About this RNA
A member of the RNA family "Small nucleolar RNA Z39" from Semnornis frantzii, 60 nucleotides long. Its family is annotated with RNA processing and nucleolus in the Gene Ontology. Rfam 15.1 lists 935 matches to the family in 520 species.

RNA sequence: GCACGUGUGAUGUGAGAAACAGUAUGAGAAACUGUGAUACUGUAAACGCUUUCUGAUGUG
Dot-bracket structure: .((((......(..((...((((((...........))))))......)).)....))))
By type it is a C/D-box small nucleolar RNA.